Translational regulator of tfoXVC: a 94-nucleotide sequence from Vibrio caribbeanicus. The family's consensus secondary structure was predicted with WAR. The literature on the family includes a 2011 paper in J Bacteriol by Yamamoto et al., "Identification of a chitin-induced small RNA that regulates translation of the tfoX gene, encoding a positive regulator of natural competence in Vibrio cholerae". The match comes from Rfam's covariance-model search (80 bits).
[Rfam]
RNA sequence: ACACCAGAUGUGGCAGUUACAUGUCACUCAGGCAGCAAGCGAAGGUGUCCUUGACACCCGUGGUAUAGCCAUGGCUAUACCACGAUAAUUUUUU
Numbered sequence: 001a002c003a004c005c006a007g008a009u010g011u012g013g014c015a016g017u018u019a020c021a022u023g024u025c026a027c028u029c030a031g032g033c034a035g036c037a038a039g040c041g042a043a044g045g046u047g048u049c050c051u052u053g054a055c056a057c058c059c060g061u062g063g064u065a066u067a068g069c070c071a072u073g074g075c076u077a078u079a080c081c082a083c084g085a086u087a088a089u090u091u092u093u094u
Base pairs, nucleotide, nucleotide: 010027011026012025013024014023015022032040033039044058045057046056047055048054049053059084060083061082062081063080064079065078066077067076068075069074